[Rfam]
RNA sequence: AUGCCUUAAACUUAUGACUAAGGAAAAUAACGAUUUGGGGUGACGCCUGAAUCCUCACUGCUAAUGUGAGAUGAAGUUUUGAGCGGGUAAAGGUUACCCCUAAGGUGACCCACCUACUUUGUGGGAAAAAGAGAAAAGAAAAUUAAUAAUCUUG
Numbered sequence: 001a002u003g004c005c006u007u008a009a010a011c012u013u014a015u016g017a018c019u020a021a022g023g024a025a026a027a028u029a030a031c032g033a034u035u036u037g038g039g040g041u042g043a044c045g046c047c048u049g050a051a052u053c054c055u056c057a058c059u060g061c062u063a064a065u066g067u068g069a070g071a072u073g074a075a076g077u078u079u080u081g082a083g084c085g086g087g088u089a090a091a092g093g094u095u096a097c098c099c100c101u102a103a104g105g106u107g108a109c110c111c112a113c114c115u116a117c118u119u120u121g122u123g124g125g126a127a128a129a130a131g132a133g134a135a136a137a138g139a140a141a142a143u144u145a146a147u148a149a150u151c152u153u154g
Stems, first nucleotide, its partner, number of pairs: 004023005032053008054070005084154004091144002094141002097138001100133002106128001109125005
Shown here is a 154-nucleotide sequence from Cnephaeus nilssonii, a member of the family "U12 minor spliceosomal RNA".
Lineage of the source: Eukaryota > Dipnotetrapodomorpha > Mammalia > Theria > Cnephaeus.
Its Rfam clan is "U2 clan".
It is annotated as a spliceosomal small nuclear RNA.